[Rfam]
RNA sequence: UUGGCCGGAAGACGGCGCAGGGGGGAAACACAAAGGCCUUUGAUGGCCUCAUGCGGUCCCCGGGAAGGUCUGAGAGAAAGCCGCCGACGUCGUCGGUGACGCCCAGGAGGCGUUCGGUCUUCAUAGACGAGAGGCUGUAGAAGAAAUGUUCUCCCGCUUCGGCGGGAUUGGGACACGGCCUCGGCUGGCAAUACGCAGCGAAUCGCUGCGGGUCUGAGUGCGAUCGCCAAACCAACACAAUUCAGACUAGUCUCCGGCCAA
Numbered sequence: 001u002u003g004g005c006c007g008g009a010a011g012a013c014g015g016c017g018c019a020g021g022g023g024g025g026a027a028a029c030a031c032a033a034a035g036g037c038c039u040u041u042g043a044u045g046g047c048c049u050c051a052u053g054c055g056g057u058c059c060c061c062g063g064g065a066a067g068g069u070c071u072g073a074g075a076g077a078a079a080g081c082c083g084c085c086g087a088c089g090u091c092g093u094c095g096g097u098g099a100c101g102c103c104c105a106g107g108a109g110g111c112g113u114u115c116g117g118u119c120u121u122c123a124u125a126g127a128c129g130a131g132a133g134g135c136u137g138u139a140g141a142a143g144a145a146a147u148g149u150u151c152u153c154c155c156g157c158u159u160c161g162g163c164g165g166g167a168u169u170g171g172g173a174c175a176c177g178g179c180c181u182c183g184g185c186u187g188g189c190a191a192u193a194c195g196c197a198g199c200g201a202a203u204c205g206c207u208g209c210g211g212g213u214c215u216g217a218g219u220g221c222g223a224u225c226g227c228c229a230a231a232c233c234a235a236c237a238c239a240a241u242u243c244a245g246a247c248u249a250g251u252c253u254c255c256g257g258c259c260a261a
Base pairs, nucleotide, nucleotide: 001261002260003259004258007255008254009253015228020061021060022059023058024057034049035048036047037046038045070245071244072243073242074241079186080185081184082183099113100112101111102110103109114130115129116128118127119126120125131182132181133180134179135178136177137176152167153166154165

The family of this 261-nucleotide sequence from Caenorhabditis bovis is "Nuclear RNase P". The organism belongs to Caenorhabditis, within Eukaryota. By type it is a ribozyme.